[Rfam]
RNA sequence: AGGUCACAAUCAACAUUCAUUGCUGUCGGUGGGUUGAGUUAAGCAAACAAGCUCACUGAACGAUGAAUGCAACUGUGUCCCC
Numbered sequence: 001a002g003g004u005c006a007c008a009a010u011c012a013a014c015a016u017u018c019a020u021u022g023c024u025g026u027c028g029g030u031g032g033g034u035u036g037a038g039u040u041a042a043g044c045a046a047a048c049a050a051g052c053u054c055a056c057u058g059a060a061c062g063a064u065g066a067a068u069g070c071a072a073c074u075g076u077g078u079c080c081c082c
Stems, first nucleotide, its partner, number of pairs: 002081002005077004014069009026059006033052003

A member of the RNA family "mir-181 microRNA precursor family" from Hymenochirus boettgeri, 82 nucleotides long. Gene Ontology terms of the family: miRNA-mediated post-transcriptional gene silencing and RISC complex. A reference for the family is Ambros (2001), "microRNAs: tiny regulators with great potential", Cell.